This 202-nucleotide sequence from Medicago truncatula belongs to the Rfam family "MIR2670 microRNA precursor family".
Rfam links the family to the GO terms miRNA-mediated post-transcriptional gene silencing and RISC complex.
Rfam 15.1 lists 188 matches to the family in 2 species.
NCBI's taxonomy places the organism under Eukaryota, Embryophyta, Pentapetalae, Trifolieae, Medicago.
Pairs were carried over by alignment from the consensus structure, which was predicted with RNAalifold.
RNA sequence: UUGGGGUAAAAUAGUGAGUAGCCGAUUUGGUGAAGUGAUCAACCAUUCUGAUAAGUUUAAAUCUGUUUUUUUUUACUCCUGAAACUUUUUACCAUGGGUAAAAGGAUUUUUCUUGGGGUAUAAAAAAAAAACCAGAUUUAAAUUUAGCCCAAGGGUUGAUGAGGUAUUUUCCUCAAGAAGGUUGCUCACUAUUUUACCCCAA
Number, nucleotide and partner (000 for none) at each position: 001u000002u000003g200004g199005g198006g197007u196008a195009a194010a193011a192012u191013a190014g189015u188016g187017a186018g185019u184020a183021g182022c181023c180024g000025a000026u177027u176028u175029g174030g173031u000032g171033a170034a169035g168036u000037g000038a000039u162040c161041a160042a156043c155044c154045a000046u152047u151048c000049u000050g148051a000052u146053a145054a144055g143056u000057u141058u140059a139060a138061a137062u136063c135064u134065g133066u000067u131068u130069u129070u128071u127072u126073u125074u120075a119076c118077u117078c116079c115080u000081g113082a000083a000084a000085c105086u104087u103088u102089u101090u100091a099092c098093c097094a000095u000096g000097g093098g092099u091100a090101a089102a088103a087104g086105g085106a000107u000108u000109u000110u000111u000112c000113u081114u000115g079116g078117g077118g076119u075120a074121u000122a000123a000124a000125a073126a072127a071128a070129a069130a068131a067132c000133c065134a064135g063136a062137u061138u060139u059140a058141a057142a000143u055144u054145u053146a052147g000148c050149c000150c000151a047152a046153g000154g044155g043156u042157u000158g000159a000160u041161g040162a039163g000164g000165u000166a000167u000168u035169u034170u033171c032172c000173u030174c029175a028176a027177g026178a000179a000180g023181g022182u021183u020184g019185c018186u017187c016188a015189c014190u013191a012192u011193u010194u009195u008196a007197c006198c005199c004200c003201a000202a000